This 115-nucleotide RNA sequence from Aquisalibacillus elongatus belongs to the Rfam family "PyrR binding site".
It scores 65 bits against the family's covariance model.
[Rfam]
RNA sequence: AAAACCUUUAAGCUUAGUCCAGAGAGGCUAACAAGGUGACGAUGAGAUCGGUAAUUAGGGAUUCGUGUAUCUAAACCCUCUUUUGUCACCUUGUGGGCAAAAGAGGGUUUUUUAU
Numbered sequence: 001a002a003a004a005c006c007u008u009u010a011a012g013c014u015u016a017g018u019c020c021a022g023a024g025a026g027g028c029u030a031a032c033a034a035g036g037u038g039a040c041g042a043u044g045a046g047a048u049c050g051g052u053a054a055u056u057a058g059g060g061a062u063u064c065g066u067g068u069a070u071c072u073a074a075a076c077c078c079u080c081u082u083u084u085g086u087c088a089c090c091u092u093g094u095g096g097g098c099a100a101a102a103g104a105g106g107g108u109u110u111u112u113u114a115u
Base pairs, nucleotide, nucleotide: 004037005036006035007034008033014031015030016029017028018027019026045070047068048061049060052057073110074109075108076107077106078105079104080103081102082101083100084099085098086097

Taxonomically the source falls in Aquisalibacillus (Bacteria, Bacillati, Bacillota, Caryophanales). A reference for the family is Bonner et al. (2001), "Molecular recognition of pyr mRNA by the Bacillus subtilis attenuation regulatory protein PyrR", Nucleic Acids Res. The family's RNA type in Rfam is cis-regulatory element. The family's consensus secondary structure is taken from published work.